Shown here is a 159-nucleotide RNA from Streptomyces caeruleatus, a member of the family "c-di-AMP riboswitch aptamer (ydaO/yuaA leader)". This family represents a conserved RNA structure found upstream of the ydaO and yuaA genes in Bacillus subtilis and related genes in other bacteria.

[Rfam]
RNA sequence: GCGCGGCCUCCGCCGAGUCCGGUACGCCCCGUGGGGCCCGGAGCCGGGGACCCACCGAACUUGGGGUGAAUCGGCCGGAUUUCCGAGCCGUAGGGCAACCCUUCCGAACCACCCGCCCGAACCCGACAGCUAACUCGGUAGGCGGAGCACGGAAGGAGU
Dot-bracket structure: ..........((((...(((((...............)))))((((((....((.......))(((.....((((...........))))..((((..................))))...))).........)))))).))))...............
Numbered sequence: 001g002c003g004c005g006g007c008c009u010c011c012g013c014c015g016a017g018u019c020c021g022g023u024a025c026g027c028c029c030c031g032u033g034g035g036g037c038c039c040g041g042a043g044c045c046g047g048g049g050a051c052c053c054a055c056c057g058a059a060c061u062u063g064g065g066g067u068g069a070a071u072c073g074g075c076c077g078g079a080u081u082u083c084c085g086a087g088c089c090g091u092a093g094g095g096c097a098a099c100c101c102u103u104c105c106g107a108a109c110c111a112c113c114c115g116c117c118c119g120a121a122c123c124c125g126a127c128a129g130c131u132a133a134c135u136c137g138g139u140a141g142g143c144g145g146a147g148c149a150c151g152g153a154a155g156g157a158g159u
Stems, first nucleotide, its partner, number of pairs: 011144004018042005043139006053063002064124003072090004093118004